[Rfam]
RNA sequence: GAGGUGUGCUCCAUGCAGGUGGCCCGGAGAAUGGCUUCUCUGUUUACAACAUACCCAGCAGGAAUUUAGGAUCACUGUGACAAGGGGCACAAAACUUAUGACAUCUCUCUGAGAAAAUGUCCUAUUUAU
Numbered sequence: 001g002a003g004g005u006g007u008g009c010u011c012c013a014u015g016c017a018g019g020u021g022g023c024c025c026g027g028a029g030a031a032u033g034g035c036u037u038c039u040c041u042g043u044u045u046a047c048a049a050c051a052u053a054c055c056c057a058g059c060a061g062g063a064a065u066u067u068a069g070g071a072u073c074a075c076u077g078u079g080a081c082a083a084g085g086g087g088c089a090c091a092a093a094a095c096u097u098a099u100g101a102c103a104u105c106u107c108u109c110u111g112a113g114a115a116a117a118u119g120u121c122c123u124a125u126u127u128a129u
Base pairs, nucleotide, nucleotide: 003055004054005053006052007051008050013045015043016042017041018040019039021037022035023034024033069122070121071120072119076115078113081111082110084104086102088100089099091097092096
Shown here is a 129-nucleotide RNA from Chinchilla lanigera, a member of the family "Small nucleolar RNA SNORA11". Its family is annotated with nucleolus and RNA processing in the Gene Ontology. A search with the family's covariance model found it, with a score of 93 bits. U107 (SNORA11) is a member of the H/ACA class of snoRNAs that guide the sites of modification of uridines to pseudouridines. This snoRNA was identified by RT-PCR from blood cells and its expression confirmed by Northern blot analysis.